[Rfam]
RNA sequence: GCGGCGGGACGACCCGUCGCGCUUCCGGUCCCGCGGGGACGACCCUG
Numbered sequence: 001g002c003g004g005c006g007g008g009a010c011g012a013c014c015c016g017u018c019g020c021g022c023u024u025c026c027g028g029u030c031c032c033g034c035g036g037g038g039a040c041g042a043c044c045c046u047g
Stems, first nucleotide, its partner, number of pairs: 001020008034047005
RNA: Guanidine-II riboswitch aptamer (mini-ykkC)